Group II catalytic intron D1-D4-4: a 141-nucleotide sequence from Candidatus Brocadia sinica. The pairing is the family consensus, mapped onto this sequence. Its family is annotated with Group II intron splicing in the Gene Ontology. Rfam describes the family as follows. Group II introns are found in rRNA, tRNA and mRNA of organelles in fungi, plants and protists, and also in mRNA in bacteria.
RNA sequence: UUAUGGGUGGAAGUCCCGUCAUAGUAGAAGCCAGAGCCAUGUAGCGUGGAUGGCAGGGGGGUGGUGGAAACGUUGCCUUCUGAAGCCAGUCGGCAAAGCCUGUAAUAAGGCAGGCGAGCAAAUAUCCGGGUUGUAACGAAC
Numbered sequence: 001u002u003a004u005g006g007g008u009g010g011a012a013g014u015c016c017c018g019u020c021a022u023a024g025u026a027g028a029a030g031c032c033a034g035a036g037c038c039a040u041g042u043a044g045c046g047u048g049g050a051u052g053g054c055a056g057g058g059g060g061g062u063g064g065u066g067g068a069a070a071c072g073u074u075g076c077c078u079u080c081u082g083a084a085g086c087c088a089g090u091c092g093g094c095a096a097a098g099c100c101u102g103u104a105a106u107a108a109g110g111c112a113g114g115c116g117a118g119c120a121a122a123u124a125u126c127c128g129g130g131u132u133g134u135a136a137c138g139a140a141c
Stems, first nucleotide, its partner, number of pairs: 020041003024037001049091003053087001054082006065072002098115006118134003